[Rfam]
RNA sequence: UACUUAUCAAGAUUGGUGGAGGGACAGGCCCUUUGAAACCAGGCAACCUAUUCAGUUAGGUGCUAAUUCCUGCAGGUGAUUUAACCUGAGAGAUAAGUC
Numbered sequence: 001u002a003c004u005u006a007u008c009a010a011g012a013u014u015g016g017u018g019g020a021g022g023g024a025c026a027g028g029c030c031c032u033u034u035g036a037a038a039c040c041a042g043g044c045a046a047c048c049u050a051u052u053c054a055g056u057u058a059g060g061u062g063c064u065a066a067u068u069c070c071u072g073c074a075g076g077u078g079a080u081u082u083a084a085c086c087u088g089a090g091a092g093a094u095a096a097g098u099c
Stems, first nucleotide, its partner, number of pairs: 002098007013041001015040003021031003025072004042064004047060002050056002068091001073088005
About this RNA:
Shown here is a 99-nucleotide sequence from Staphylococcus sp. HGB0015, a member of the family "SAM riboswitch aptamer (S box leader)". The match comes from Rfam's covariance-model search (83 bits).